MIR398 microRNA precursor family: a 116-nucleotide sequence from Colocasia esculenta. For this family Rfam cites "Conservation and divergence of microRNAs and their functions in Euphorbiaceous plants" (Zeng et al., Nucleic Acids Res, 2010). The source organism's lineage runs through Eukaryota, Embryophyta, Euphyllophyta, Liliopsida and Colocasia.
RNA sequence: GGAGCUCCGACGGGAGCGACAUGGGAGCACACGAGAAGCGAGAGAGAGAGAGAGAGCUCGCAAGAGCCAGUCUCUGCGUCUCCCGUGUGUUCUCAGGUCGCCCCUGCUGGGCCUCC
Numbered sequence: 001g002g003a004g005c006u007c008c009g010a011c012g013g014g015a016g017c018g019a020c021a022u023g024g025g026a027g028c029a030c031a032c033g034a035g036a037a038g039c040g041a042g043a044g045a046g047a048g049a050g051a052g053a054g055a056g057c058u059c060g061c062a063a064g065a066g067c068c069a070g071u072c073u074c075u076g077c078g079u080c081u082c083c084c085g086u087g088u089g090u091u092c093u094c095a096g097g098u099c100g101c102c103c104c105u106g107c108u109g110g111g112c113c114u115c116c
Base pairs, nucleotide, nucleotide: 007110008109011106012105013104014103016101017100018099019098023094024093025092026091027090028089029088030087031086032085